[Rfam]
RNA sequence: GUUGCUUCAUAAUGGUGAACUCCUUAUUAUUACACCCAAGGAUGAUUCAAGUUUUCAGAGCAUAUUUUGAUAUUUAGUAUUAACUCUAGGCUAUAUGACAUAGUAGUUUUGAUUUCCUAAUGAAUUU
Numbered sequence: 001g002u003u004g005c006u007u008c009a010u011a012a013u014g015g016u017g018a019a020c021u022c023c024u025u026a027u028u029a030u031u032a033c034a035c036c037c038a039a040g041g042a043u044g045a046u047u048c049a050a051g052u053u054u055u056c057a058g059a060g061c062a063u064a065u066u067u068u069g070a071u072a073u074u075u076a077g078u079a080u081u082a083a084c085u086c087u088a089g090g091c092u093a094u095a096u097g098a099c100a101u102a103g104u105a106g107u108u109u110u111g112a113u114u115u116c117c118u119a120a121u122g123a124a125u126u127u
Base pairs, nucleotide, nucleotide: 003062004061005060006059007058016049017048018047019046020044021042022041023040024039025038074120075119076118077117079115086103087102088101090099

Shown here is a 127-nucleotide sequence from Coptis chinensis, a member of the family "small nucleolar RNA snoR137". Its family is annotated with RNA processing and nucleolus in the Gene Ontology. A reference for the family is Chen and Wu (2009), "Mining small RNA sequencing data: a new approach to identify small nucleolar RNAs in Arabidopsis", Nucleic Acids Res. A search with the family's covariance model found it, with a score of 46 bits.